[Rfam]
About this RNA:
Shown here is a 174-nucleotide sequence from Clostridium sp. HMP27, a member of the family "Lysine riboswitch aptamer". NCBI's taxonomy places the organism under Bacteria, Bacillati, Bacillota, Clostridiaceae, Clostridium. The family's consensus secondary structure is taken from published work. The match comes from Rfam's covariance-model search (110 bits).

Nucleotides: 174
Stems, first nucleotide, its partner, number of pairs: 007168005016084005024076001032069007088116003091112008117143011145159005
Number, partner (000 for none) and nucleotide at each position: 001000c002000g003000a004000g005000u006000a007168g008167a009166u010165a011164g012000a013000g014000g015000u016084g017083g018082g019081c020080c021000u022000g023000a024076c025000a026000a027000g028000a029000g030000u031000a032069a033068a034067u035066a036065a037064g038063a039000u040000g041000a042000g043000g044000u045000a046000u047000a048000a049000g050000a051000g052000a053000u054000a055000u056000c057000g058000u059000u060000g061000a062000u063038u064037c065036u066035u067034a068033u069032u070000g071000a072000a073000a074000g075000g076024g077000g078000a079000u080020g081019g082018c083017c084016c085000c086000g087000a088116a089115g090114g091112g092111u093110g094109a095108a096107u097106u098105u099000u100000c101000u102000c103000u104000u105098a106097a107096a108095u109094u110093c111092a112091u113000a114090c115089c116088u117143g118142g119141u120140u121139u122138a123137c124136g125135u126134a127133u128000u129000a130000a131000c132000a133127g134126u135125a136124c137123g138122u139121g140120g141119a142118c143117u144000g145159u146158c147157a148156c149155c150000u151000a152000u153000u154000u155149g156148g157147u158146g159145g160000a161000g162000a163000g164011c165010u166009a167008u168007c169000g170000u171000u172000u173000u174000g